Description:
Shown here is an 85-nucleotide RNA sequence from Paenalicyclobacillus ferrooxydans, a member of the family "c-di-GMP-I riboswitch aptamer". Taxonomically the source falls in Paenalicyclobacillus (Bacteria, Bacillota, Caryophanales, Alicyclobacillaceae). The match comes from Rfam's covariance-model search (82 bits). About the family: GEMM was predicted in a large-scale screen for bacterial structured RNA regulatory elements.

[Rfam]
RNA sequence: UGUACAAAAAGGUAAACCGUUCGAAAGAACGGGACACAAAGCUGCGGGGCUACAGCAUUUAUGCCAUGCCAGCCGAGCUGCCAUA
Numbered sequence: 001u002g003u004a005c006a007a008a009a010a011g012g013u014a015a016a017c018c019g020u021u022c023g024a025a026a027g028a029a030c031g032g033g034a035c036a037c038a039a040a041g042c043u044g045c046g047g048g049g050c051u052a053c054a055g056c057a058u059u060u061a062u063g064c065c066a067u068g069c070c071a072g073c074c075g076a077g078c079u080g081c082c083a084u085a
Stems, first nucleotide, its partner, number of pairs: 012037002017032006040079004045075003048070003055064003